Rfam assigns this 135-nucleotide RNA sequence from Jaculus jaculus to the family "Small Cajal body specific RNA 11". The base pairs follow the family's consensus structure, which was predicted with RNAalifold. The family's RNA type in Rfam is small Cajal body RNA. A reference for the family is Darzacq et al. (2002), "Cajal body-specific small nuclear RNAs: a novel class of 2'-O-methylation and pseudouridylation guide RNAs", EMBO J. A search with the family's covariance model found it, with a score of 90 bits. NCBI's taxonomy places the organism under Eukaryota, Vertebrata, Boreoeutheria, Rodentia, Jaculus. About the family: scaRNAs are a specific class of small nuclear RNAs which localise to the Cajal bodies and guide the modification of RNA polymerase II transcribed spliceosomal RNAs U1, U2, U4, U5 and U12.
RNA sequence: UUGUCCUGGCCUGUGCCUUUUCUGUUCCCAUUUGCUCUAAUGAGGUACUCUGUCAGGACACAUAGCAAUUUAUCUCUCAGUGUAGGAUAAUUAUCCUAAGAAUAGGACUGGCUUUUAAAGGCACAAGAGGACAAU
Numbered sequence: 001u002u003g004u005c006c007u008g009g010c011c012u013g014u015g016c017c018u019u020u021u022c023u024g025u026u027c028c029c030a031u032u033u034g035c036u037c038u039a040a041u042g043a044g045g046u047a048c049u050c051u052g053u054c055a056g057g058a059c060a061c062a063u064a065g066c067a068a069u070u071u072a073u074c075u076c077u078c079a080g081u082g083u084a085g086g087a088u089a090a091u092u093a094u095c096c097u098a099a100g101a102a103u104a105g106g107a108c109u110g111g112c113u114u115u116u117a118a119a120g121g122c123a124c125a126a127g128a129g130g131a132c133a134a135u
Stems, first nucleotide, its partner, number of pairs: 002060007011052001024049001026047001028045002031042001033040001073130005080122002083119001086116002089113001091111002094107005